[Rfam]
Nucleotides: 084
Base pairs, nucleotide, nucleotide: 004081005080006079007078008077009076011074012073013072014071015070017068018067019066020065023062024061030057031056032055033054034053
Number, partner (000 for none) and nucleotide at each position: 001000u002000u003000u004081g005080u006079a007078u008077g009076u010000c011074a012073g013072c014071c015070u016000c017068u018067c019066a020065u021000u022000u023062g024061g025000c026000c027000u028000g029000c030057c031056u032055a033054g034053c035000u036000g037000a038000c039000u040000u041000u042000a043000a044000a045000u046000u047000a048000a049000u050000a051000u052000u053034g054033c055032u056031a057030g058000c059000u060000g061024c062023c063000u064000u065020g066019u067018g068017a069000a070015g071014g072013g073012c074011u075000u076009a077008c078007g079006u080005g081004u082000g083000a084000u

The record is an 84-nucleotide RNA sequence from Drosophila ananassae, which matches "mir-980 microRNA precursor family" in Rfam. A search with the family's covariance model found it, with a score of 75 bits. Pairs were carried over by alignment from the consensus structure, which was predicted with RNAalifold.